[Rfam]
RNA sequence: CUAAAAAUGAAGCAUGGUAAUGUGCACAGAAAUUGAUUUGGGACUCUAGGCUUGCCCUCUAUGAUGCCUUUUGGCUUUGAUUUUGGGGCAUGGUUCCGCAACAAAACG
Numbered sequence: 001c002u003a004a005a006a007a008u009g010a011a012g013c014a015u016g017g018u019a020a021u022g023u024g025c026a027c028a029g030a031a032a033u034u035g036a037u038u039u040g041g042g043a044c045u046c047u048a049g050g051c052u053u054g055c056c057c058u059c060u061a062u063g064a065u066g067c068c069u070u071u072u073g074g075c076u077u078u079g080a081u082u083u084u085g086g087g088g089c090a091u092g093g094u095u096c097c098g099c100a101a102c103a104a105a106a107c108g
Base pairs, nucleotide, nucleotide: 012025013024014023015022040091042089044087050081052079054075055074056073